Shown here is a 91-nucleotide sequence from Pongo pygmaeus, a member of the family "mir-1289 microRNA precursor family". The family has 6 seed sequences and 31 matches in Rfam 15.1. The organism belongs to Pongo, within Eukaryota. Rfam links the family to the GO terms miRNA-mediated post-transcriptional gene silencing and RISC complex.
RNA sequence: AAAACUGGUAAAUGCAGACUCUUGGAUUCCACCCCCAGAGAAUCCGUAAACCGGGGGUGGAGUCCAGGAAUCUGCAUUUUAGAAAGUACCC
Numbered sequence: 001a002a003a004a005c006u007g008g009u010a011a012a013u014g015c016a017g018a019c020u021c022u023u024g025g026a027u028u029c030c031a032c033c034c035c036c037a038g039a040g041a042a043u044c045c046g047u048a049a050a051c052c053g054g055g056g057g058u059g060g061a062g063u064c065c066a067g068g069a070a071u072c073u074g075c076a077u078u079u080u081a082g083a084a085a086g087u088a089c090c091c
Base pairs, nucleotide, nucleotide: 010079011078012077013076014075015074016073017072018071020069021068022067023066024065025064026063027062028061029060030059031058032057033056034055035054036053